Shown here is a 127-nucleotide RNA from Fukomys damarensis, a member of the family "Small nucleolar RNA SNORA77". Rfam links the family to the GO terms nucleolus and RNA processing. From the family's description: ACA63 (SNORA77) is a member of the H/ACA class of snoRNAs that guide the sites of modification of uridines to pseudouridines. This snoRNA was identified by computational screening and its expression in mouse experimentally verified by Northern blot and primer extension analysis. ACA63 is proposed to guide the pseudouridylation of 18S rRNA U814. It scores 115 bits against the family's covariance model.

[Rfam]
RNA sequence: GCAGACUCACUCUGCACUUGGCUGCAGCCUCCAGGCAGGUGCUUUUUCCGUCUGCCAGAGAACCUUUCCAGGGAGCUGUGGCAACCUUGAUCUUUUGGGGGUGAUGCAGCUUUCUGGGCACAUAGAA
Numbered sequence: 001g002c003a004g005a006c007u008c009a010c011u012c013u014g015c016a017c018u019u020g021g022c023u024g025c026a027g028c029c030u031c032c033a034g035g036c037a038g039g040u041g042c043u044u045u046u047u048c049c050g051u052c053u054g055c056c057a058g059a060g061a062a063c064c065u066u067u068c069c070a071g072g073g074a075g076c077u078g079u080g081g082c083a084a085c086c087u088u089g090a091u092c093u094u095u096u097g098g099g100g101g102u103g104a105u106g107c108a109g110c111u112u113u114c115u116g117g118g119c120a121c122a123u124a125g126a127a
Stems, first nucleotide, its partner, number of pairs: 001055006014042007022034003067118007075110006084102004